[Rfam]
RNA sequence: GGUCAUGAGUUCCAGCGUGAAGCUCCGGCUCGCUGGACGGCAACCCUCCUCACGUGGCGGGGUGCUCCGGAUGACGACCUGGCGUUGCUCGUAGGAGAACAACGCAAGCGCGUGGU
Numbered sequence: 001g002g003u004c005a006u007g008a009g010u011u012c013c014a015g016c017g018u019g020a021a022g023c024u025c026c027g028g029c030u031c032g033c034u035g036g037a038c039g040g041c042a043a044c045c046c047u048c049c050u051c052a053c054g055u056g057g058c059g060g061g062g063u064g065c066u067c068c069g070g071a072u073g074a075c076g077a078c079c080u081g082g083c084g085u086u087g088c089u090c091g092u093a094g095g096a097g098a099a100c101a102a103c104g105c106a107a108g109c110g111c112g113u114g115g116u
Base pairs, nucleotide, nucleotide: 001079002078003077004076009038011037012036013035014034015033016032021030022029039066040065041064044062045061046060048057049056082105083104084103085102086101087100089098090097
SAM (S-adenosyl methionine) riboswitch aptamer: a 116-nucleotide sequence.
About the family: SAM-IV is a mRNA element that regulates gene expression via direct sensing of S-adenosylmethionine (SAM or AdoMet).
A search with the family's covariance model found it, with a score of 102 bits.
The base pairs follow the family's consensus structure, which is taken from published work.